[Rfam]
RNA sequence: AAAUAAAAUUUCAUACCCGCUCGUAUAAUAAUGGGAAUAUGGCCCAUAAGUUUCUACCGGAUAACCACUGCAAUUGUCCGACUAUGAGUGAAAGCGCGGCACGC
Numbered sequence: 001a002a003a004u005a006a007a008a009u010u011u012c013a014u015a016c017c018c019g020c021u022c023g024u025a026u027a028a029u030a031a032u033g034g035g036a037a038u039a040u041g042g043c044c045c046a047u048a049a050g051u052u053u054c055u056a057c058c059g060g061a062u063a064a065c066c067a068c069u070g071c072a073a074u075u076g077u078c079c080g081a082c083u084a085u086g087a088g089u090g091a092a093a094g095c096g097c098g099g100c101a102c103g104c
Stems, first nucleotide, its partner, number of pairs: 018090008029049001031047005058080007
Rfam assigns this 104-nucleotide sequence from Paenibacillus methanolicus to the family "Purine riboswitch aptamer". The match comes from Rfam's covariance-model search (73 bits). The source organism's lineage runs through Bacteria, Bacillati, Bacillota, Paenibacillaceae and Paenibacillus.